[Rfam]
The record is a 100-nucleotide RNA from a Gammaproteobacteria bacterium, which matches "t44 RNA" in Rfam. Lineage of the source: Bacteria > Pseudomonadati > Pseudomonadota > Gammaproteobacteria. The family's RNA type in Rfam is small RNA. It scores 63 bits against the family's covariance model.

RNA sequence: AGAGAAUAACUUUAACGUCACACACUUACCGUCACGCGAUAUCUGGGUGCCUGAGAGCGCAAGCUUAAGGGUUGAUUAGCGGGGUAUGUGGAGGCCUAAC
Numbered sequence: 001a002g003a004g005a006a007u008a009a010c011u012u013u014a015a016c017g018u019c020a021c022a023c024a025c026u027u028a029c030c031g032u033c034a035c036g037c038g039a040u041a042u043c044u045g046g047g048u049g050c051c052u053g054a055g056a057g058c059g060c061a062a063g064c065u066u067a068a069g070g071g072u073u074g075a076u077u078a079g080c081g082g083g084g085u086a087u088g089u090g091g092a093g094g095c096c097u098a099a100c
Base pairs, nucleotide, nucleotide: 023090024089025088027086028085029084030083035081036080037079039077041076042075043074049072050071051070052069